[Rfam]
Rfam assigns this 108-nucleotide RNA from Medicago truncatula to the family "MIR2593 microRNA precursor family".
RNA sequence: UUAUAAGCAAAAAUUCACUUUUUAGAUUCAUUCAACAAAUGAUGUAUGUGGUCUAGACCACAUACAUCAUUUGUUGAAUGAAUCUAAAAAGUGAAUUUUUGCUUAUAG
Numbered sequence: 001u002u003a004u005a006a007g008c009a010a011a012a013a014u015u016c017a018c019u020u021u022u023u024a025g026a027u028u029c030a031u032u033c034a035a036c037a038a039a040u041g042a043u044g045u046a047u048g049u050g051g052u053c054u055a056g057a058c059c060a061c062a063u064a065c066a067u068c069a070u071u072u073g074u075u076g077a078a079u080g081a082a083u084c085u086a087a088a089a090a091g092u093g094a095a096u097u098u099u100u101g102c103u104u105a106u107a108g
Base pairs, nucleotide, nucleotide: 002107003106004105005104006103007102009100010099011098012097013096015094016093017092018091019090020089021088022087023086024085025084027082028081029080030079031078032077033076034075035074036073037072038071039070040069041068042067043066044065049060050059051058052057
The source organism's lineage runs through Eukaryota, Viridiplantae, Gunneridae, Hologalegina and Medicago.